[Rfam]
RNA sequence: GCGCUGGCACAGCUCAGUGGUUACUUCUGAGAACAUUUCUAAUGGUCGUGCCUCCCAGCAAUGGGAUCGAACCCCGGGCGCCGUCCAGCGUUUUU
Numbered sequence: 001g002c003g004c005u006g007g008c009a010c011a012g013c014u015c016a017g018u019g020g021u022u023a024c025u026u027c028u029g030a031g032a033a034c035a036u037u038u039c040u041a042a043u044g045g046u047c048g049u050g051c052c053u054c055c056c057a058g059c060a061a062u063g064g065g066a067u068c069g070a071a072c073c074c075c076g077g078g079c080g081c082c083g084u085c086c087a088g089c090g091u092u093u094u095u
Stems, first nucleotide, its partner, number of pairs: 002090006012079004017075001019073002025071003029067001
Rfam assigns this 95-nucleotide RNA sequence from Anabarilius grahami to the family "Vault RNA". Rfam describes the family as follows. This family of RNAs are found as part of the enigmatic vault ribonucleoprotein complex. The base pairs follow the family's consensus structure, which is taken from published work. NCBI's taxonomy places the organism under Eukaryota, Bilateria, Chordata, Ostariophysi, Anabarilius.